Record summary:
Fluoride riboswitch aptamer (crcB RNA motif): a 74-nucleotide RNA sequence from Cellulosimicrobium funkei. Lineage of the source: Bacteria > Bacillati > Actinomycetota > Actinomycetes > Cellulosimicrobium.
[Rfam]
RNA sequence: GCUGAGGGCGGUGAUGGAUCCCGCCAGGGCUAGCCGCCCGAACCGCCGCCAGGGCUGAUGGUUCCUGUCUCGUC
Numbered sequence: 001g002c003u004g005a006g007g008g009c010g011g012u013g014a015u016g017g018a019u020c021c022c023g024c025c026a027g028g029g030c031u032a033g034c035c036g037c038c039c040g041a042a043c044c045g046c047c048g049c050c051a052g053g054g055c056u057g058a059u060g061g062u063u064c065c066u067g068u069c070u071c072g073u074c
Stems, first nucleotide, its partner, number of pairs: 010025004016065003020061002045055003